[Rfam]
RNA sequence: AAUUGCAUUUAGGUGGGGAAAGGUGGCAAUGUUUUUUCAUUAGAUAUACAAUUAAUAUUGCACUUGUCCCGGCCUAUAUGCGGUUU
Dot-bracket structure: ...(((...(((((.((((..(((.((((((((....................)))))))))))..)))).)))))...)))....
mir-92 microRNA precursor family: an 86-nucleotide RNA sequence from Musca domestica. A reference for the family is Houbaviy et al. (2003), "Embryonic stem cell-specific MicroRNAs", Dev Cell. A search with the family's covariance model found it, with a score of 50 bits. Rfam's curators write: This family represents the microRNA precursor mir-92. Lineage of the source: Eukaryota > Dicondylia > Aparaglossata > Muscoidea > Musca. Pairs were carried over by alignment from the consensus structure, which was predicted with PFOLD.